[Rfam]
RNA sequence: UUUAAUGGAUCAUCGACUAAUACCUGCCACAUCGUGUGGCGAACAUCGACGCCAGCCCAUCCUGGGCA
Dot-bracket structure: ..........(.((((.........(((((.....))))).....)))).)...((((.....)))).
RNA: Bacillaceae-1 RNA
Organism: Bacillus sp. V59.32b